Rfam assigns this 81-nucleotide RNA from Orchesella cincta to the family "mir-184 microRNA precursor family". The family has 66 seed sequences and 948 matches in Rfam 15.1. Its family is annotated with gene silencing by miRNA and RISC complex in the Gene Ontology. A reference for the family is Chen et al. (2005), "The developmental miRNA profiles of zebrafish as determined by small RNA cloning", Genes Dev. Taxonomically the source falls in Orchesella (Eukaryota, Opisthokonta, Hexapoda, Entomobryoidea). Pairs were carried over by alignment from the consensus structure, which was predicted with PFOLD.
RNA sequence: UCUGCCUCAACUCCUUAUCAUUCACCUGUCCGGUGUUGAUUAAAUGGACUGGACGGAGAACUGAUAAGGGCUUGAGCAGAA
Numbered sequence: 001u002c003u004g005c006c007u008c009a010a011c012u013c014c015u016u017a018u019c020a021u022u023c024a025c026c027u028g029u030c031c032g033g034u035g036u037u038g039a040u041u042a043a044a045u046g047g048a049c050u051g052g053a054c055g056g057a058g059a060a061c062u063g064a065u066a067a068g069g070g071c072u073u074g075a076g077c078a079g080a081a
Base pairs, nucleotide, nucleotide: 012070013069014068015067016066017065018064019063020062021060022059023058025056026055029052030051